Record summary: Neisseria metabolic switch regulator b (RcoF1/NgncR163): an 87-nucleotide RNA sequence from Paralysiella testudinis. A reference for the family is Bauer et al. (2017), "The sibling sRNAs NgncR_162 and NgncR_163 of Neisseria gonorrhoeae participate in the expression control of metabolic, transport and regulatory proteins", Microbiology. It is annotated as a small RNA. NCBI's taxonomy places the organism under Bacteria, Pseudomonadati, Neisseriales, Neisseriaceae, Paralysiella. The family has 6 seed sequences and 65 matches in Rfam 15.1. Gene Ontology terms of the family: tricarboxylic acid cycle, regulation of translation, ncRNA-mediated and protein binding. The match comes from Rfam's covariance-model search (89 bits). Sibling sRNA described and independently named in three publications. NgncR163 is N. gonorrhoeae while the others are N. meningitidis RNAs. RcoF1 stands for: RNA regulating colonization factor 1.

RNA sequence: UCGUUGGGUGGCUUCGGCCAUUUAACAGUUUCUCCUCUAUUUCUCCUUUGUAGACUUGGCGCAUACCGAAUCGGUGUGCGCAUUUUU
Number, nucleotide and partner (000 for none) at each position: 001u000002c000003g026004u025005u024006g023007g022008g021009u020010g019011g018012c000013u000014u000015c000016g000017g000018c011019c010020a009021u008022u007023u006024a005025a004026c003027a000028g000029u000030u000031u000032c000033u000034c000035c000036u054037c053038u052039a051040u050041u000042u000043c000044u000045c000046c000047u000048u000049u000050g040051u039052a038053g037054a036055c000056u000057u000058g000059g081060c080061g079062c078063a077064u076065a075066c074067c073068g072069a000070a000071u000072c068073g067074g066075u065076g064077u063078g062079c061080g060081c059082a000083u000084u000085u000086u000087u000